[Rfam]
RNA sequence: UCCGUCAGCGGUAGCCUACUAUAAGGUGCAUCUCCAGUGAUGGGUUGUGCCAAGCUUAUAGGACAAAGUACACUUUCCGAAAGGACAAGACUGAACCGUGAGGGAAUGUCAAGGACGGUUAGUAUCAUACCGUUGAGUGG
Number, nucleotide and partner (000 for none) at each position: 001u000002c011003c010004g009005u000006c000007a000008g000009c004010g003011g002012u000013a000014g000015c000016c000017u000018a000019c000020u060021a059022u058023a057024a056025g051026g050027u049028g048029c047030a046031u000032c044033u000034c043035c042036a041037g000038u000039g000040a000041u036042g035043g034044g032045u000046u030047g029048u028049g027050c026051c025052a000053a000054g000055c000056u024057u023058a022059u021060a020061g000062g000063a000064c000065a000066a000067a000068g000069u000070a000071c000072a000073c000074u087075u000076u085077c084078c083079g000080a000081a000082a000083g078084g077085a076086c000087a074088a000089g110090a109091c108092u000093g000094a000095a000096c103097c102098g000099u000100g000101a000102g097103g096104g000105a000106a000107u000108g091109u090110c089111a000112a000113g000114g000115a133116c132117g131118g130119u129120u000121a000122g000123u000124a000125u000126c000127a000128u000129a119130c118131c117132g116133u115134u000135g000136a000137g000138u000139g000140g000
A member of the RNA family "Group II catalytic intron D1-D4-7", 140 nucleotides long.
The base pairs follow the family's consensus structure.
Its family is annotated with Group II intron splicing in the Gene Ontology.
The literature on the family includes a 2001 paper in Trends Genet by Bonen and Vogel, "The ins and outs of group II introns".